This 72-nucleotide RNA from Ornithorhynchus anatinus belongs to the Rfam family "mir-1421 microRNA precursor family". Gene Ontology terms of the family: RISC complex and miRNA-mediated post-transcriptional gene silencing. The base pairs follow the family's consensus structure, which was predicted with RNAalifold.
RNA sequence: UGGUUUGAGGUGGACACAUGGUGCAGUGUGAUAGUGGAAUAUGCUGUAUCACGUGUGACCUCCCUCUACUGU
Numbered sequence: 001u002g003g004u005u006u007g008a009g010g011u012g013g014a015c016a017c018a019u020g021g022u023g024c025a026g027u028g029u030g031a032u033a034g035u036g037g038a039a040u041a042u043g044c045u046g047u048a049u050c051a052c053g054u055g056u057g058a059c060c061u062c063c064c065u066c067u068a069c070u071g072u
Stems, first nucleotide, its partner, number of pairs: 003069002007065001009063002012060002015057006021049005